[Rfam]
RNA: Ascomycota telomerase RNA, nucleotides 1166 to 1528
Organism: Emericellopsis cladophorae
RNA sequence: CUGCAAACGGAAGGAGCUUGAGUUCGUGGACAGCCACUUCGGAAAGGAAUGCAGAGUGAGCGGGUGCCGACGACGGUAUCAUGAUGAUCCUGGCACACGCUAGGCUUUUCCAAACAACAGCGGGGAUUCAUGGUCCCUUUGUCUCGCUUGAUUUGGGAGCAAAGCCCGGGACCCAGCCUGCGUUGGAGUCAAAGUUUUGUACUUGUCCGGCUUUGUGAUCAAUCCGCUCGGGACUUGGGUGGACGGCUUCCUUGCUGACGUGCGGACGAAAAUUGGAGGAGGGGACAGGCCCCGAGGUUGAUGGCAGUCCCUGGCUGUUCCUUGCUCCAGCAAUGGCGUGAGGACAGCCCUCUUCACCGGAGG
Numbered sequence: 001c002u003g004c005a006a007a008c009g010g011a012a013g014g015a016g017c018u019u020g021a022g023u024u025c026g027u028g029g030a031c032a033g034c035c036a037c038u039u040c041g042g043a044a045a046g047g048a049a050u051g052c053a054g055a056g057u058g059a060g061c062g063g064g065u066g067c068c069g070a071c072g073a074c075g076g077u078a079u080c081a082u083g084a085u086g087a088u089c090c091u092g093g094c095a096c097a098c099g100c101u102a103g104g105c106u107u108u109u110c111c112a113a114a115c116a117a118c119a120g121c122g123g124g125g126a127u128u129c130a131u132g133g134u135c136c137c138u139u140u141g142u143c144u145c146g147c148u149u150g151a152u153u154u155g156g157g158a159g160c161a162a163a164g165c166c167c168g169g170g171a172c173c174c175a176g177c178c179u180g181c182g183u184u185g186g187a188g189u190c191a192a193a194g195u196u197u198u199g200u201a202c203u204u205g206u207c208c209g210g211c212u213u214u215g216u217g218a219u220c221a222a223u224c225c226g227c228u229c230g231g232g233a234c235u236u237g238g239g240u241g242g243a244c245g246g247c248u249u250c251c252u253u254g255c256u257g258a259c260g261u262g263c264g265g266a267c268g269a270a271a272a273u274u275g276g277a278g279g280a281g282g283g284g285a286c287a288g289g290c291c292c293c294g295a296g297g298u299u300g301a302u303g304g305c306a307g308u309c310c311c312u313g314g315c316u317g318u319u320c321c322u323u324g325c326u327c328c329a330g331c332a333a334u335g336g337c338g339u340g341a342g343g344a345c346a347g348c349c350c351u352c353u354u355c356a357c358c359g360g361a362g363g
Base pairs, nucleotide, nucleotide: 170190171189172188173186174185175184192204193203194202195201